[Rfam]
RNA sequence: CAGGAGGGUGCCUAGGGUUCCGCUUCCCCUUUGGGAAGGUCUGGUCCAAGCGGUACCAACACCUGUAAUAAAGGUGUACACCGUGGGGACAAAAGCCCCGUGCGGC
Number, nucleotide and partner (000 for none) at each position: 001c000002a000003g000004g000005a000006g000007g057008g056009u055010g054011c053012c052013u000014a000015g047016g046017g000018u000019u000020c044021c043022g041023c038024u037025u036026c035027c034028c033029c000030u000031u000032u000033g028034g027035g026036a025037a024038g023039g000040u000041c022042u000043g021044g020045u000046c016047c015048a000049a000050g000051c000052g012053g011054u010055a009056c008057c007058a000059a077060c076061a075062c074063c073064u072065g000066u000067a000068a000069u000070a000071a000072a064073g063074g062075u061076g060077u059078a000079c000080a101081c000082c104083g000084u000085g000086g098087g097088g096089a000090c000091a000092a000093a000094a000095g000096c088097c087098c086099c000100g000101u080102g000103c000104g082105g000106c000

The family of this 106-nucleotide RNA from Desmospora activa is "Guanidine-I riboswitch aptamer". A search with the family's covariance model found it, with a score of 67 bits. Its family is annotated with regulation of gene expression in the Gene Ontology.